[Rfam]
Source information
Shown here is a 138-nucleotide RNA sequence from Gemmiger formicilis, a member of the family "Ribosomal protein L10 leader". This family is a putative r-protein leader autoregulatory structure found in B. subtilis and other low-GC Gram-positive bacteria. The family's consensus secondary structure was predicted with CMfinder. It is annotated as a cis-regulatory leader.

RNA sequence: UAUACUAAUUAAGCUGUUUUUGAGACAGCAGGUGCCGCAAGGCAUAACGGGUUUUACCCACCUGCCGAGAAACGUGCGUUUGAUUGCAAUGCUUUCAAGCCCUUUCCCGGCGACGGGAAGGGGCUUUUUUCUGUAUAU
Number, nucleotide and partner (000 for none) at each position: 001u000002a000003u000004a000005c000006u000007a000008a000009u000010u000011a000012a000013g000014c000015u000016g000017u000018u000019u000020u000021u000022g000023a000024g000025a000026c000027a000028g065029c064030a063031g062032g061033u060034g043035c042036c041037g000038c000039a000040a000041g036042g035043c034044a000045u000046a000047a000048c000049g000050g000051g000052u000053u000054u000055u000056a000057c000058c000059c000060a033061c032062c031063u030064g029065c028066c000067g000068a000069g000070a000071a000072a000073c000074g000075u000076g000077c000078g000079u000080u000081u000082g000083a000084u000085u000086g000087c000088a000089a000090u000091g000092c000093u000094u000095u000096c000097a000098a000099g124100c123101c122102c121103u120104u119105u118106c117107c116108c115109g000110g000111c000112g000113a000114c000115g108116g107117g106118a105119a104120g103121g102122g101123g100124c099125u000126u000127u000128u000129u000130u000131c000132u000133g000134u000135a000136u000137a000138u000